A member of the RNA family "Makes More Granules Regulator RNA (mmgR)" from Cohaesibacter celericrescens, 73 nucleotides long. The family's RNA type in Rfam is small RNA.
RNA sequence: UAUCGUCGCCCUCACCGGGCGUUUCCUCCUUAGACUUCAAAGGCCGCUGAUGCGGCCUUUUUUUUUGACAUAA
Numbered sequence: 001u002a003u004c005g006u007c008g009c010c011c012u013c014a015c016c017g018g019g020c021g022u023u024u025c026c027u028c029c030u031u032a033g034a035c036u037u038c039a040a041a042g043g044c045c046g047c048u049g050a051u052g053c054g055g056c057c058u059u060u061u062u063u064u065u066u067g068a069c070a071u072a073a
Base pairs, nucleotide, nucleotide: 008020009019010018011017041058042057043056044055045054046053047052

A reference for the family is Corbino et al. (2005), "Evidence for a second class of S-adenosylmethionine riboswitches and other regulatory RNA motifs in alpha-proteobacteria", Genome Biol. Lineage of the source: Bacteria > Pseudomonadota > Alphaproteobacteria > Hyphomicrobiales > Cohaesibacter. A search with the family's covariance model found it, with a score of 58 bits.